A member of the RNA family "Small nucleolar RNA SNORA28" from Gulo gulo, 117 nucleotides long. The literature on the family includes a 2001 paper in EMBO J by Huttenhofer et al., "RNomics: an experimental approach that identifies 201 candidates for novel, small, non-messenger RNAs in mouse". Gene Ontology terms of the family: RNA processing and nucleolus. Rfam describes the family as follows. ACA28 is a member of the H/ACA class of snoRNA that guide the sites of modification of uridines to pseudouridines.

[Rfam]
RNA sequence: CAGGCCCACUCUGUGGCAGAUGAUUGAAAUUGUCUGACACAACAUGAGCAAGAUCAUCUAACCUAUUCCAGUGUUUUCUCCUCUGAGAACCCAACUGUUACAUAGACUGUUGGCUAA
Number, nucleotide and partner (000 for none) at each position: 001c000002a000003g000004g000005c000006c000007c000008a000009c048010u047011c046012u041013g040014u039015g038016g000017c036018a035019g034020a033021u032022g031023a000024u000025u000026g000027a000028a000029a000030u000031u022032g021033u020034c019035u018036g017037a000038c015039a014040c013041a012042a000043c000044a000045u000046g011047a010048g009049c000050a000051a000052g000053a000054u000055c109056a108057u106058c105059u104060a103061a000062c000063c000064u102065a000066u100067u000068c000069c097070a096071g095072u094073g000074u000075u000076u000077u000078c000079u088080c087081c000082u000083c000084u000085g000086a000087g080088a079089a000090c000091c000092c000093a000094a072095c071096u070097g069098u000099u000100a066101c000102a064103u060104a059105g058106a057107c000108u056109g055110u000111u000112g000113g000114c000115u000116a000117a000